[Rfam]
RNA sequence: UGGCCGCCGGGUCGACCUCGCGGGUCACUACCAAGUAUUCGCGCAGCGCGAUGGCGUGCAGGUGCUC
Numbered sequence: 001u002g003g004c005c006g007c008c009g010g011g012u013c014g015a016c017c018u019c020g021c022g023g024g025u026c027a028c029u030a031c032c033a034a035g036u037a038u039u040c041g042c043g044c045a046g047c048g049c050g051a052u053g054g055c056g057u058g059c060a061g062g063u064g065c066u067c
Stems, first nucleotide, its partner, number of pairs: 004061001007058001010029003014026004036053002039051005

Annotation: Rfam assigns this 67-nucleotide RNA sequence from Mycobacterium haemophilum to the family "ASdes TB sRNA". The family's RNA type in Rfam is small RNA. NCBI's taxonomy places the organism under Bacteria, Actinomycetota, Actinomycetes, Mycobacteriaceae, Mycobacterium. On this family, see Arnvig and Young, Mol Microbiol 2009: "Identification of small RNAs in Mycobacterium tuberculosis". Pairs were carried over by alignment from the consensus structure, which is taken from published work. It scores 64 bits against the family's covariance model.